[Rfam]
RNA: TPP riboswitch aptamer (THI element)
Nucleotides: 102
Stems, first nucleotide, its partner, number of pairs: 007089004011052004017030005037046003057083004064077004
Number, partner (000 for none) and nucleotide at each position: 001000u002000c003000a004000u005000c006000a007089c008088g009087a010086c011052a012051g013050g014049g015000g016000a017030g018029c019028c020027c021026c022000g023000c024000a025000c026021g027020g028019g029018g030017c031000u032000g033000a034000g035000a036000g037046u038045g039044c040000g041000c042000a043000a044039g045038c046037a047000g048000a049014c050013c051012c052011u053000c054000g055000a056000a057083c058082c059081u060080g061000a062000a063000u064077c065076c066075g067074g068000c069000u070000a071000g072000c073000a074067c075066c076065g077064g078000c079000g080060u081059a082058g083057g084000a085000a086010g087009u088008c089007g090000a091000g092000c093000a094000u095000c096000u097000c098000g099000g100000g101000g102000c